[Rfam]
RNA sequence: CACAGCUGUUUCCACUCGGAUCGUCCGGCACGUUCCUGCCGGUGGAUAAGGAAGUU
Number, nucleotide and partner (000 for none) at each position: 001c000002a000003c000004a000005g000006c000007u000008g000009u048010u000011u046012c045013c044014a043015c000016u000017c000018g000019g000020a000021u000022c000023g000024u000025c042026c041027g040028g039029c038030a037031c000032g000033u000034u000035c000036c000037u030038g029039c028040c027041g026042g025043u014044g013045g012046a011047u000048a009049a000050g000051g000052a000053a000054g000055u000056u000
Shown here is a 56-nucleotide RNA sequence from Paractinoplanes tereljensis, a member of the family "msiK RNA". NCBI's taxonomy places the organism under Bacteria, Bacillati, Micromonosporales, Micromonosporaceae, Paractinoplanes.